[Rfam]
RNA sequence: AUGCACCGCGCGUCAACCGGACGUGGCGGCAAGGGGAACGGGGCGAUUUUUCCGGUUUCUCGCCUCGGCCAACGAAACGGCAGCCGAGCCCCUGUCCCGCCCGCGGC
Numbered sequence: 001a002u003g004c005a006c007c008g009c010g011c012g013u014c015a016a017c018c019g020g021a022c023g024u025g026g027c028g029g030c031a032a033g034g035g036g037a038a039c040g041g042g043g044c045g046a047u048u049u050u051u052c053c054g055g056u057u058u059c060u061c062g063c064c065u066c067g068g069c070c071a072a073c074g075a076a077a078c079g080g081c082a083g084c085c086g087a088g089c090c091c092c093u094g095u096c097c098c099g100c101c102c103g104c105g106g107c
Stems, first nucleotide, its partner, number of pairs: 006106004011023004025101003028097002033092004039067007068081003
Shown here is a 107-nucleotide RNA from Kaistia hirudinis, a member of the family "Rhizobiales sRNA Atu_At1".
The match comes from Rfam's covariance-model search (113 bits).
The family's RNA type in Rfam is small RNA.
Pairs were carried over by alignment from the consensus structure, which was predicted with CMfinder.